c-di-AMP riboswitch aptamer (ydaO/yuaA leader): a 137-nucleotide RNA sequence from Micromonospora lupini.
[Rfam]
RNA sequence: GGACCGACACCGCCGAGUCGCUUGCGAGCGAGCCGGGGACCCAGGUUCCCCCGGGGUGAGUCCGCAGCCAAUGCGGUAGGGCGCCAACUUCCCGCCCGAACCCGUCAGCUAACCCGGUAGGCGGUCAGGAAGAAGGA
Numbered sequence: 001g002g003a004c005c006g007a008c009a010c011c012g013c014c015g016a017g018u019c020g021c022u023u024g025c026g027a028g029c030g031a032g033c034c035g036g037g038g039a040c041c042c043a044g045g046u047u048c049c050c051c052c053g054g055g056g057u058g059a060g061u062c063c064g065c066a067g068c069c070a071a072u073g074c075g076g077u078a079g080g081g082c083g084c085c086a087a088c089u090u091c092c093c094g095c096c097c098g099a100a101c102c103c104g105u106c107a108g109c110u111a112a113c114c115c116g117g118u119a120g121g122c123g124g125u126c127a128g129g130a131a132g133a134a135g136g137a
Base pairs, nucleotide, nucleotide: 011123012122013121014120018031019030020029032118033117034116035115036114037113042053054103055102056101062076063075064074065073079097080096081095082094
The organism belongs to Micromonospora lupini, within Bacteria. Gene Ontology terms of the family: regulation of gene expression and cyclic-di-AMP binding. The match comes from Rfam's covariance-model search (85 bits).